This 121-nucleotide RNA sequence from Actinospica acidithermotolerans belongs to the Rfam family "Group II catalytic intron D1-D4-2". It scores 95 bits against the family's covariance model. The base pairs follow the family's consensus structure. Taxonomically the source falls in Actinospica (Bacteria, Bacillati, Catenulisporales, Actinospicaceae).
[Rfam]
Nucleotides: 121
Base pairs, nucleotide, nucleotide: 001019002018003017004016005015020045021044022043023042024041025040027038028037029036030035050120052096053095054094055093056092057090058084059083061081062080063079065077066076067075101117102116103115104114105113106112
Number, partner (000 for none) and nucleotide at each position: 001019g002018a003017g004016g005015g006000u007000u008000u009000u010000g011000u012000g013000g014000c015005c016004c017003c018002u019001c020045g021044g022043a023042g024041u025040c026000g027038c028037c029036c030035g031000g032000c033000g034000g035030u036029g037028g038027g039000a040025g041024g042023c043022u044021u045020c046000a047000a048000a049000c050120c051000g052096c053095c054094c055093c056092g057090c058084g059083c060000u061081g062080c063079g064000u065077u066076g067075g068000c069000u070000g071000a072000a073000g074000a075067c076066c077065g078000u079063c080062g081061u082000g083059g084058u085000g086000a087000g088000c089000g090057g091000u092056c093055g094054g095053g096052g097000a098000a099000a100000a101117g102116g103115c104114g105113c106112a107000c108000g109000u110000g111000a112106u113105g114104c115103g116102u117101c118000a119000g120050g121000u

On this family, see Lehmann and Schmidt, Crit Rev Biochem Mol Biol 2003: "Group II introns: structure and catalytic versatility of large natural ribozymes". The family has 144 seed sequences and 1,231 matches in Rfam 15.1. From the family's description: Group II introns are found in rRNA, tRNA and mRNA of organelles in fungi, plants and protists, and also in mRNA in bacteria.